[Rfam]
RNA: Streptococcus sRNA SpR18
Organism: Peptoniphilus lacrimalis
RNA sequence: UUGAUUACAAGCUUUAGGGAGAAUUAAAAAUAGCUACUGGUACUCAAAUGGUACUGGAAGUAAAAAAGAAUAAUUAAAAUAAUAGUUCCAAGUGGUUUACAUUUGGACAAAAAAUAAGACCGUAGUUUCAAGCUGC
Numbered sequence: 001u002u003g004a005u006u007a008c009a010a011g012c013u014u015u016a017g018g019g020a021g022a023a024u025u026a027a028a029a030a031u032a033g034c035u036a037c038u039g040g041u042a043c044u045c046a047a048a049u050g051g052u053a054c055u056g057g058a059a060g061u062a063a064a065a066a067a068g069a070a071u072a073a074u075u076a077a078a079a080u081a082a083u084a085g086u087u088c089c090a091a092g093u094g095g096u097u098u099a100c101a102u103u104u105g106g107a108c109a110a111a112a113a114a115u116a117a118g119a120c121c122g123u124a125g126u127u128u129c130a131a132g133c134u135g136c
Base pairs, nucleotide, nucleotide: 006039007038010035011034012033013032042128048123049122050121051120056071085108086107088106089105090104091103092102093101094100